[Rfam]
RNA sequence: CGUUGAUCGGCGUGCGAUGGAACUCUGCUCGAGCGUGAGCGGCUGAUGUACUUCCCCAACAUCAGCAAAGCCGCUCGAGCAGGGCUCCACGCGCACCGGUCGCUCACCG
Numbered sequence: 001c002g003u004u005g006a007u008c009g010g011c012g013u014g015c016g017a018u019g020g021a022a023c024u025c026u027g028c029u030c031g032a033g034c035g036u037g038a039g040c041g042g043c044u045g046a047u048g049u050a051c052u053u054c055c056c057c058a059a060c061a062u063c064a065g066c067a068a069a070g071c072c073g074c075u076c077g078a079g080c081a082g083g084g085c086u087c088c089a090c091g092c093g094c095a096c097c098g099g100u101c102g103c104u105c106a107c108c109g
Base pairs, nucleotide, nucleotide: 010096012094013093014092015091016090020087021086023084024083025082026081027080028079029078030077031076032075033074034073035072042066043065044064045063046062047061048060049059
Shown here is a 109-nucleotide RNA from Corynebacterium argentoratense, a member of the family "mraW RNA".
The family's consensus secondary structure is taken from published work.
The source organism's lineage runs through Bacteria, Actinomycetota, Actinomycetes, Corynebacterium and Corynebacterium argentoratense.
Rfam classes the family as a cis-regulatory element.
It scores 53 bits against the family's covariance model.